[Rfam]
Shown here is an 85-nucleotide sequence from Streptomyces sp. NWU49, a member of the family "Streptomyces RNA 6106". The pairing is the family consensus, mapped onto this sequence. Rfam classes the family as a small RNA. Identified by deep sequencing of transcriptome at the end of exponential growth phase. Appears smaller on northern blot than sequencing transcript. This indicates processing step. Streptomyces specific.

RNA sequence: ACGCCGUCCCGAGCGGCGCUCACGGCUCGCAAGAGGCCCGUGUGGCGGGGGUGGUGCCGUGUCGGCGCAGCACCACCCCCGCGUC
Numbered sequence: 001a002c003g004c005c006g007u008c009c010c011g012a013g014c015g016g017c018g019c020u021c022a023c024g025g026c027u028c029g030c031a032a033g034a035g036g037c038c039c040g041u042g043u044g045g046c047g048g049g050g051g052u053g054g055u056g057c058c059g060u061g062u063c064g065g066c067g068c069a070g071c072a073c074c075a076c077c078c079c080c081g082c083g084u085c
Stems, first nucleotide, its partner, number of pairs: 002018006021042005026036002045082013059068003